[Rfam]
RNA: Bacterial RNase P class A
Organism: Denitrovibrio acetiphilus
Nucleotides: 347
Stems, first nucleotide, its partner, number of pairs: 001343010011332001012312007020040002023037005045330003049327005054210004061244004066206005071085005086099005100201002105199002107195003122140002124136005148166002151163003167190001168188003172185005214269004224260006235249005276295008
Number, partner (000 for none) and nucleotide at each position: 001343a002342a003341a004340g005339a006338a007337g008336g009335u010334c011332g012312u013311u014310c015309a016308g017307u018306u019000g020040c021039c022000g023037g024036c025035a026034c027033a028000c029000u030000u031000g032000a033027u034026g035025u036024g037023c038000g039021g040020g041000a042000g043000g044000a045330a046329a047328g048000u049327c050326c051325g052324g053323a054210c055209a056208c057207c058000g059000c060000a061244g062243g063242g064241c065000a066206g067205g068204a069203u070202g071085g072084c073083u074082g075081a076000u077000a078000a079000c080000g081075u082074c083073a084072g085071c086099c087098u088097g089096g090095u091000g092000u093000g094000a095090a096089u097088c098087a099086g100201g101200g102000a103000a104000a105199g106198u107195g108194c109193c110000a111000c112000a113000g114000a115000a116000a117000a118000c119000a120000a121000a122140c123139c124136g125135c126134c127133u128132u129000u130000u131000a132128a133127a134126g135125g136124u137000a138000a139123g140122g141000g142000u143000g144000a145000a146000a147000c148166g149165g150000a151163g152162g153161u154000g155000u156000a157000a158000g159000a160000g161153a162152c163151c164000c165149c166148c167190g168188c169187u170186g171000a172185u173184g174183c175182u176181g177000g178000u179000g180000a181176c182175a183174g184173c185172a186170c187169a188168g189000g190167c191000a192000a193109g194108g195107c196000a197000a198106a199105c200101c201100c202070c203069a204068u205067c206066c207057g208056g209055u210054g211000c212000a213000a214269u215268g216267c217266c218000a219000a220000a221000u222000a223000g224260g225259c226258a227257g228256a229255c230000c231000a232000a233000c234000u235249a236248a237247g238246a239245u240000u241064g242063c243062c244061c245239g246238u247237u248236u249235u250000u251000u252000a253000u254000g255229g256228u257227c258226u259225g260224c261000g262000g263000g264000u265000a266217g267216g268215c269214a270000g271000c272000u273000u274000g275000a276295u277294c278293a279292u280291a281290u282289u283288g284000g285000c286000a287000a288283c289282a290281a291280u292279a293278u294277g295276g296000c297000u298000a299000g300000a301000u302000a303000a304000a305000u306018g307017a308016c309015u310014g311013a312012a313000g314000a315000u316000a317000a318000c319000a320000g321000a322000a323053u324052c325051c326050g327049g328047c329046u330045u331000a332011c333000a334010g335009a336008c337007c338006u339005u340004c341003u342002u343001u344000c345000a346000c347000u